[Rfam]
A member of the RNA family "MIR6274 microRNA precursor family" from Prunus armeniaca, 107 nucleotides long. The match comes from Rfam's covariance-model search (89 bits). Lineage of the source: Eukaryota > Tracheophyta > Spermatophyta > fabids > Prunus. Gene Ontology terms of the family: RISC complex and miRNA-mediated post-transcriptional gene silencing. Rfam 15.1 lists 342 matches to the family in 8 species.

RNA sequence: GGAAUAAUAUUUUUUGCCAUAUUCGGCCAAUAACACAAUGACACGUGGGAUAACUUUUCCACGUGUUAUUGUGUUAUUGGCUAGAAAUAGCAAAACAGUGUUAUUCC
Numbered sequence: 001g002g003a004a005u006a007a008u009a010u011u012u013u014u015u016g017c018c019a020u021a022u023u024c025g026g027c028c029a030a031u032a033a034c035a036c037a038a039u040g041a042c043a044c045g046u047g048g049g050a051u052a053a054c055u056u057u058u059c060c061a062c063g064u065g066u067u068a069u070u071g072u073g074u075u076a077u078u079g080g081c082u083a084g085a086a087a088u089a090g091c092a093a094a095a096c097a098g099u100g101u102u103a104u105u106c107c
Base pairs, nucleotide, nucleotide: 002106003105004104005103012095013094014093015092016091017090019088020087022085023084025082026081027080028079029078030077031076032075033074034073035072036071037070038069039068040067041066042065043064044063045062046061047060048059049058050057